Shown here is a 57-nucleotide RNA sequence, a member of the family "eL15-Euryarchaeota ribosomal protein leader". The sequence is in the family's curated seed alignment.
RNA sequence: GCGGGAUACGUCCCGUUGAAAGGAAUGUAGCUCUCAAAAAAGGGGCCGAACCUUAGG
Numbered sequence: 001g002c003g004g005g006a007u008a009c010g011u012c013c014c015g016u017u018g019a020a021a022g023g024a025a026u027g028u029a030g031c032u033c034u035c036a037a038a039a040a041a042g043g044g045g046c047c048g049a050a051c052c053u054u055a056g057g
Stems, first nucleotide, its partner, number of pairs: 001016005021053003030046005